A member of the RNA family "T-box leader" from Clostridium fungisolvens, 206 nucleotides long.
By type it is a cis-regulatory leader.
[Rfam]
RNA sequence: GAAAAAACUGUGAAUGAGAGAGUAAGAAUAUUUUAGCUUUACAGGGAGAAGAGAUCGAAGACUGGAAGUCUCUUUAUUGAUAUAUAUUCUGAAGUUCACUCAGGAGUUCUAACUGUGAAAUAAAGUAGUAGUUAGCGGGGAACCGUUAUAUAUAUAAGAGAGUAUUAAGCUAAUUAGGGUGGUACCGCGGAACCUCCGUCCCUUUA
Numbered sequence: 001g002a003a004a005a006a007a008c009u010g011u012g013a014a015u016g017a018g019a020g021a022g023u024a025a026g027a028a029u030a031u032u033u034u035a036g037c038u039u040u041a042c043a044g045g046g047a048g049a050a051g052a053g054a055u056c057g058a059a060g061a062c063u064g065g066a067a068g069u070c071u072c073u074u075u076a077u078u079g080a081u082a083u084a085u086a087u088u089c090u091g092a093a094g095u096u097c098a099c100u101c102a103g104g105a106g107u108u109c110u111a112a113c114u115g116u117g118a119a120a121u122a123a124a125g126u127a128g129u130a131g132u133u134a135g136c137g138g139g140g141a142a143c144c145g146u147u148a149u150a151u152a153u154a155u156a157a158g159a160g161a162g163u164a165u166u167a168a169g170c171u172a173a174u175u176a177g178g179g180u181g182g183u184a185c186c187g188c189g190g191a192a193c194c195u196c197c198g199u200c201c202c203u204u205u206a
Base pairs, nucleotide, nucleotide: 007107008106015102016101017100018099025090026089027088028087029086030085039076048075049074050073051072052071053070054069055068110134111133112132113131114130115129116128136145137144138143161171162170163169176203177202178201179200187199188198189197190196191195
The match comes from Rfam's covariance-model search (118 bits).